[Rfam]
RNA sequence: CUGUGCUAAAGCGGGGAGAUAGCGGUGCCCUGUAACCCUGAACCCGCUAUACAGGGGCUGAUAAUCUGCUGGAAGGCAUGCUGUUGUAAACCGAGGCAGAUUGAAAGGGCUAUGAAGGCAGGACCUCAAGCAAUACUUACUCUUGAACCCCGCGAGCUCCGGAAGGAAGCAACGGUAAAAGAGUCAGGUAUUUGGCUUGAGAAAAUCUUGCUGGAGCCUCGUAAAUCUGUACAGUUUGUAACAACAUGUCAACCGCAGAUGCACAG
Numbered sequence: 001c002u003g004u005g006c007u008a009a010a011g012c013g014g015g016g017a018g019a020u021a022g023c024g025g026u027g028c029c030c031u032g033u034a035a036c037c038c039u040g041a042a043c044c045c046g047c048u049a050u051a052c053a054g055g056g057g058c059u060g061a062u063a064a065u066c067u068g069c070u071g072g073a074a075g076g077c078a079u080g081c082u083g084u085u086g087u088a089a090a091c092c093g094a095g096g097c098a099g100a101u102u103g104a105a106a107g108g109g110c111u112a113u114g115a116a117g118g119c120a121g122g123a124c125c126u127c128a129a130g131c132a133a134u135a136c137u138u139a140c141u142c143u144u145g146a147a148c149c150c151c152g153c154g155a156g157c158u159c160c161g162g163a164a165g166g167a168a169g170c171a172a173c174g175g176u177a178a179a180a181g182a183g184u185c186a187g188g189u190a191u192u193u194g195g196c197u198u199g200a201g202a203a204a205a206u207c208u209u210g211c212u213g214g215a216g217c218c219u220c221g222u223a224a225a226u227c228u229g230u231a232c233a234g235u236u237u238g239u240a241a242c243a244a245c246a247u248g249u250c251a252a253c254c255g256c257a258g259a260u261g262c263a264c265a266g
Base pairs, nucleotide, nucleotide: 001266002265003264004263005262006261010059011058012057013031014030015029016028018026020024036056037055038054039053040052065259066258067257068256069255071253075250076249077248078247079246082243083242084241085240086239087238088237089236090235095232099228102225107220108218109217110216117212118211119210120209121208122207123206125201126200127199128198129197130196132191134190135189136188137187138186139184140183141182142181143180144179150175151174152173158167159166160165
Dot-bracket structure: ((((((...(((((((.(.(...).).))))....(((((...........)))))))).....(((((.(...(((((..(((((((((....(...(..(....((((......(((((((.((((((.(.(((((((((((.....(((.....(((....))).....)))...)))))).))))))....))))))....)))))))...))).)....)..)...)..)))))))))..)))))..).))))).))))))

Rfam assigns this 266-nucleotide RNA sequence from Caldisericum exile to the family "Bacterial large signal recognition particle RNA". The signal recognition particle (SRP) is a universally conserved ribonucleoprotein involved in the co-translational targeting of proteins to membranes. The family's RNA type in Rfam is non-coding RNA gene. A search with the family's covariance model found it, with a score of 139 bits.